[Rfam]
RNA: SAM riboswitch aptamer (S box leader)
RNA sequence: GAAUCAUCCAGAGGGGUGGAGGGACCGGCCCUACGAAGCCCCGGCAACUCCCCGGUCGACUCGGUGCUCAUUCUUUGCGCCGCGCCGUCGGGUCCAGUGCCAACUCCGGCCCGCGCCAACGUGGCGUGGGAAAAGAUGAGGA
Numbered sequence: 001g002a003a004u005c006a007u008c009c010a011g012a013g014g015g016g017u018g019g020a021g022g023g024a025c026c027g028g029c030c031c032u033a034c035g036a037a038g039c040c041c042c043g044g045c046a047a048c049u050c051c052c053c054g055g056u057c058g059a060c061u062c063g064g065u066g067c068u069c070a071u072u073c074u075u076u077g078c079g080c081c082g083c084g085c086c087g088u089c090g091g092g093u094c095c096a097g098u099g100c101c102a103a104c105u106c107c108g109g110c111c112c113g114c115g116c117c118a119a120c121g122u123g124g125c126g127u128g129g130g131a132a133a134a135g136a137u138g139a140g141g142a
Stems, first nucleotide, its partner, number of pairs: 004139005013042005021031003025109004043101004048097002051092006105134001110130008